[Rfam]
RNA: Gag/pol translational readthrough site
Organism: Ursus americanus
RNA sequence: UAGGGAGGUCGGGGCUCGGACCCCCUCCCUGAGCCCAGGAUAACUCUCAAAGUGGAGGGGAA
Numbered sequence: 001u002a003g004g005g006a007g008g009u010c011g012g013g014g015c016u017c018g019g020a021c022c023c024c025c026u027c028c029c030u031g032a033g034c035c036c037a038g039g040a041u042a043a044c045u046c047u048c049a050a051a052g053u054g055g056a057g058g059g060g061a062a
Stems, first nucleotide, its partner, number of pairs: 008041003012036004016031001018029002022060006